[Rfam]
A member of the RNA family "Group II catalytic intron D1-D4-7" from Massilia psychrophila, 132 nucleotides long. NCBI's taxonomy places the organism under Bacteria, Pseudomonadota, Betaproteobacteria, Burkholderiales, Massilia.

RNA sequence: CCAUCCGUGUCACCGGAUGAAUCUAGGGACCUGAAUAAAGAGCGGUCCUGACAACGUAACGAAGCAUCGCAAGGUGCGGGGUAUCAAUCGUAAGAGACAUACCCUUCUGGCAGCCACGCGCCGGAUGAGUGC
Numbered sequence: 001c002c003a004u005c006c007g008u009g010u011c012a013c014c015g016g017a018u019g020a021a022u023c024u025a026g027g028g029a030c031c032u033g034a035a036u037a038a039a040g041a042g043c044g045g046u047c048c049u050g051a052c053a054a055c056g057u058a059a060c061g062a063a064g065c066a067u068c069g070c071a072a073g074g075u076g077c078g079g080g081g082u083a084u085c086a087a088u089c090g091u092a093a094g095a096g097a098c099a100u101a102c103c104c105u106u107c108u109g110g111c112a113g114c115c116a117c118g119c120g121c122c123g124g125a126u127g128a129g130u131g132c
Base pairs, nucleotide, nucleotide: 002019003018004017005016006015007014027048028047029046030045031044032039064077065076066075067074068073079104080103081102082101088095089094106125107124108123109122110121111120

Its family is annotated with Group II intron splicing in the Gene Ontology. Group II introns are found in rRNA, tRNA and mRNA of organelles in fungi, plants and protists, and also in mRNA in bacteria. On this family, see Bonen and Vogel, Trends Genet 2001: "The ins and outs of group II introns".